[Rfam]
RNA: UnaL2 LINE 3' element
Organism: Hucho hucho
RNA sequence: UGCACACACUUCUGUAAGUCGCUCUGAAUAAGAGCGUCUGCUAAAUGUAAACAU
Number, nucleotide and partner (000 for none) at each position: 001u000002g000003c000004a000005c000006a000007c000008a000009c000010u000011u000012c000013u043014g041015u040016a039017a000018g000019u000020c036021g035022c034023u033024c032025u031026g000027a000028a000029u000030a000031a025032g024033a023034g022035c021036g020037u000038c000039u016040g015041c014042u000043a013044a000045a000046u000047g000048u000049a000050a000051a000052c000053a000054u000